[Rfam]
This 100-nucleotide RNA sequence from Bacillus sp. 1NLA3E belongs to the Rfam family "S10-Clostridia ribosomal protein leader". Taxonomically the source falls in Bacillus (Bacteria, Bacilli, Caryophanales, Bacillaceae).
RNA sequence: UGACUGCGAUGAUGCGGAAGGUUGCUGACACACCCGGCCGCUUUGCCAUGGCGAGUGUGUGGGAAAUUUUCGCGGAGAAUGUCUAUAUUAAAAUAGGCGA
Numbered sequence: 001u002g003a004c005u006g007c008g009a010u011g012a013u014g015c016g017g018a019a020g021g022u023u024g025c026u027g028a029c030a031c032a033c034c035c036g037g038c039c040g041c042u043u044u045g046c047c048a049u050g051g052c053g054a055g056u057g058u059g060u061g062g063g064a065a066a067u068u069u070u071c072g073c074g075g076a077g078a079a080u081g082u083c084u085a086u087a088u089u090a091a092a093a094u095a096g097g098c099g100a
Stems, first nucleotide, its partner, number of pairs: 014073003018070004025062002080099004086095003
About this RNA
The match comes from Rfam's covariance-model search (39 bits). On this family, see Eckert and Weinberg, BMC Microbiol 2020: "Discovery of 20 novel ribosomal leader candidates in bacteria and archaea". The family's RNA type in Rfam is cis-regulatory leader. The family's consensus secondary structure is taken from published work.